[Rfam]
RNA sequence: UAAUGGGGUAGAGGUCGCGAUUAUUAAGAGUAAAGCAGUGGAGAUUGAGAGAAUCGAAGAAACAGCUUGAAAGGAAUAAUUGCCGAAGUGUUAACGUAACUCUCUAGGUUAAUGCUGGGGCUGUUUUCGAAAGGAACAGAACUGUCACAGGUUUAGGCUGUGUUGAGCUAUCUUUCAA
Number, nucleotide and partner (000 for none) at each position: 001u000002a000003a000004u000005g000006g173007g172008g171009u170010a169011g168012a000013g000014g000015u000016c000017g083018c082019g081020a080021u079022u078023a077024u076025u075026a000027a000028g000029a000030g000031u000032a000033a068034a067035g066036c065037a000038g063039u062040g000041g000042a000043g000044a000045u000046u000047g000048a000049g000050a000051g000052a000053a000054u000055c000056g000057a000058a000059g000060a000061a000062a039063c038064a000065g036066c035067u034068u033069g000070a000071a000072a000073g000074g000075a025076a024077u023078a022079a021080u020081u019082g018083c017084c000085g000086a000087a116088g115089u114090g113091u112092u111093a110094a109095c108096g000097u106098a105099a000100c000101u000102c000103u000104c000105u098106a097107g000108g095109u094110u093111a092112a091113u090114g089115c088116u087117g143118g142119g000120g000121c139122u138123g137124u136125u135126u134127u133128c000129g000130a000131a000132a000133g127134g126135a125136a124137c123138a122139g121140a000141a000142c118143u117144g000145u000146c162147a161148c160149a159150g158151g000152u000153u000154u000155a000156g000157g000158c150159u149160g148161u147162g146163u000164u000165g000166a000167g000168c011169u010170a009171u008172c007173u006174u000175u000176c000177a000178a000

The family of this 178-nucleotide RNA from Lysinibacillus composti is "Lysine riboswitch aptamer". A search with the family's covariance model found it, with a score of 120 bits. Pairs were carried over by alignment from the consensus structure, which is taken from published work.